[Rfam]
RNA sequence: UUUGGGUAGUGAGCAGUCGCUUUGUUUUACAAAGAGGAAAGUCUGAGCUUGCGUAGAAAGUGAUAACGGAUAACAUCCGUCGGGGGCAACCCUAGGGAAAGUGCAGCAGAAAAAAACCGCCGAAAGGUAAGGGUGAAAAGGUGAGGUAAGAGCUUACCGGGUGAAAUAAAUAUCAUCGCAAUAUGCAAACCCUAUCACAAGUAAGAUCAAAUAGAGGUUAAAACUUUUUCUACAGUUGACCUGGGUUGAUCGCUGGAGCUUAGUAGUAAUAUUAAGCCUAGAUAAAUGACUGCUAAUUUUCAAUAAAAUUACAGAACUCAGCUUAUAGCUACCCAUAUAUU
Numbered sequence: 001u002u003u004g005g006g007u008a009g010u011g012a013g014c015a016g017u018c019g020c021u022u023u024g025u026u027u028u029a030c031a032a033a034g035a036g037g038a039a040a041g042u043c044u045g046a047g048c049u050u051g052c053g054u055a056g057a058a059a060g061u062g063a064u065a066a067c068g069g070a071u072a073a074c075a076u077c078c079g080u081c082g083g084g085g086g087c088a089a090c091c092c093u094a095g096g097g098a099a100a101g102u103g104c105a106g107c108a109g110a111a112a113a114a115a116a117c118c119g120c121c122g123a124a125a126g127g128u129a130a131g132g133g134u135g136a137a138a139a140g141g142u143g144a145g146g147u148a149a150g151a152g153c154u155u156a157c158c159g160g161g162u163g164a165a166a167u168a169a170a171u172a173u174c175a176u177c178g179c180a181a182u183a184u185g186c187a188a189a190c191c192c193u194a195u196c197a198c199a200a201g202u203a204a205g206a207u208c209a210a211a212u213a214g215a216g217g218u219u220a221a222a223a224c225u226u227u228u229u230c231u232a233c234a235g236u237u238g239a240c241c242u243g244g245g246u247u248g249a250u251c252g253c254u255g256g257a258g259c260u261u262a263g264u265a266g267u268a269a270u271a272u273u274a275a276g277c278c279u280a281g282a283u284a285a286a287u288g289a290c291u292g293c294u295a296a297u298u299u300u301c302a303a304u305a306a307a308a309u310u311a312c313a314g315a316a317c318u319c320a321g322c323u324u325a326u327a328g329c330u331a332c333c334c335a336u337a338u339a340u341u
Stems, first nucleotide, its partner, number of pairs: 001337001003335008011326001012294007020034006039324003043321005048201004056231001059229001061197005066080005081095001082093004096192002101190002103186003117132002119128003140158006159179001160177005166171001205251004215242006224235002227232001258277008
Background
The family of this 341-nucleotide RNA from alpha proteobacterium HIMB59 is "Bacterial RNase P class A". The base pairs follow the family's consensus structure, which is taken from published work. For this family Rfam cites "Identification and characterization of small RNAs in Yersinia pestis" (Beauregard et al., RNA Biol, 2013). The family's RNA type in Rfam is ribozyme. NCBI's taxonomy places the organism under Bacteria, Pseudomonadati, Pseudomonadota, Alphaproteobacteria, Candidatus Pelagibacteraceae. The match comes from Rfam's covariance-model search (255 bits).